[Rfam]
RNA sequence: GAUCACCGUCCAUUCACAACGGAUCGUCCGGCACGUACCUGCCGGUGAAGGAGAAGAUC
Numbered sequence: 001g002a003u004c005a006c007c008g009u010c011c012a013u014u015c016a017c018a019a020c021g022g023a024u025c026g027u028c029c030g031g032c033a034c035g036u037a038c039c040u041g042c043c044g045g046u047g048a049a050g051g052a053g054a055a056g057a058u059c
Base pairs, nucleotide, nucleotide: 010051011050013049014048015047016046028045029044030043031042032041033040

Rfam assigns this 59-nucleotide RNA from Frigoribacterium sp. RIT-PI-h to the family "msiK RNA". Rfam 15.1 lists 1,374 matches to the family in 1,364 species. Pairs were carried over by alignment from the consensus structure, which is taken from published work. The match comes from Rfam's covariance-model search (65 bits). The organism belongs to Frigoribacterium, within Bacteria. It is annotated as a cis-regulatory element.